[Rfam]
A member of the RNA family "UnaL2 LINE 3' element" from Denticeps clupeoides, 54 nucleotides long. The source organism's lineage runs through Eukaryota, Metazoa, Craniata, Denticipitoidei and Denticeps. The eel long interspersed element (LINE) UnaL2 and its partner short interspersed element (SINE) share a conserved 3' tail containing a stem-loop that is critical for their retrotransposition. Presumably, the first step of retrotransposition is the recognition of their 3' tails by UnaL2-encoded reverse transcriptase. The solution structure of a 17-nucleotide RNA derived from the 3' tail of UnaL2 was determined by NMR. The match comes from Rfam's covariance-model search (59 bits). It is annotated as a cis-regulatory element. Rfam 15.1 lists 493,311 matches to the family in 99 species.
RNA sequence: AGUUAGGCCUCCUGUAAGUCGCUUUGGAUAAAAGCGUCUGCAAAAUAACGUAAA
Number, nucleotide and partner (000 for none) at each position: 001a000002g000003u000004u000005a000006g000007g000008c000009c000010u000011c000012c000013u043014g041015u040016a039017a000018g000019u000020c036021g035022c034023u033024u032025u031026g000027g000028a000029u000030a000031a025032a024033a023034g022035c021036g020037u000038c000039u016040g015041c014042a000043a013044a000045a000046u000047a000048a000049c000050g000051u000052a000053a000054a000